[Rfam]
RNA: Ribosomal S15 leader
Organism: Pseudidiomarina indica
RNA sequence: GAUCAGUGCUGAAUUAGUGAUUGGCACUGAUAUUUUUCACCAUUAGGAGUAAACUAUGUCACUAAGUACGGCAAAAAAAGCGGAAAUCGUUAAAGAAUACGGCCAAAGCGAA
Numbered sequence: 001g002a003u004c005a006g007u008g009c010u011g012a013a014u015u016a017g018u019g020a021u022u023g024g025c026a027c028u029g030a031u032a033u034u035u036u037u038c039a040c041c042a043u044u045a046g047g048a049g050u051a052a053a054c055u056a057u058g059u060c061a062c063u064a065a066g067u068a069c070g071g072c073a074a075a076a077a078a079a080g081c082g083g084a085a086a087u088c089g090u091u092a093a094a095g096a097a098u099a100c101g102g103c104c105a106a107a108g109c110g111a112a
Stems, first nucleotide, its partner, number of pairs: 007026006043066002046063002049060001